The record is a 68-nucleotide RNA from Acinetobacter rudis, which matches "Fluoride riboswitch aptamer (crcB RNA motif)" in Rfam. Taxonomically the source falls in Acinetobacter rudis (Bacteria, Pseudomonadota, Moraxellales, Moraxellaceae).
RNA sequence: AUUAACAAAGGAGAUGGUAAUCCUCCUUAAACAAACCGCCAAUUCUGGCUGAUGAUGCCUACGUUUCC
Numbered sequence: 001a002u003u004a005a006c007a008a009a010g011g012a013g014a015u016g017g018u019a020a021u022c023c024u025c026c027u028u029a030a031a032c033a034a035a036c037c038g039c040c041a042a043u044u045c046u047g048g049c050u051g052a053u054g055a056u057g058c059c060u061a062c063g064u065u066u067c068c
Stems, first nucleotide, its partner, number of pairs: 010026004016059004021054001038049004
The base pairs follow the family's consensus structure, which is taken from published work. Rfam links the family to the GO terms positive regulation of gene expression and response to fluoride.